[Rfam]
RNA sequence: AUUGCAAGUUUGAAGCCAUGCAGAAUUGUUCAUAGCACGGCCCUGUCAGAUUCCAACAAAUCUGCAAAUUCUUCU
Numbered sequence: 001a002u003u004g005c006a007a008g009u010u011u012g013a014a015g016c017c018a019u020g021c022a023g024a025a026u027u028g029u030u031c032a033u034a035g036c037a038c039g040g041c042c043c044u045g046u047c048a049g050a051u052u053c054c055a056a057c058a059a060a061u062c063u064g065c066a067a068a069u070u071c072u073u074c075u
Stems, first nucleotide, its partner, number of pairs: 012043001015041003020074001022072004027037002047064006
Mammalian CPEB3 ribozyme: a 75-nucleotide RNA sequence from Alligator mississippiensis. The family's consensus secondary structure is taken from published work. A search with the family's covariance model found it, with a score of 38 bits. Rfam describes the family as follows. The mammalian CPEB3 ribozyme is a self cleaving RNA located in the second intron of the CPEB3 gene which belongs to a family of genes regulating messenger RNA polyadenylation. Taxonomically the source falls in Alligator (Eukaryota, Deuterostomia, Chordata, Tetrapoda).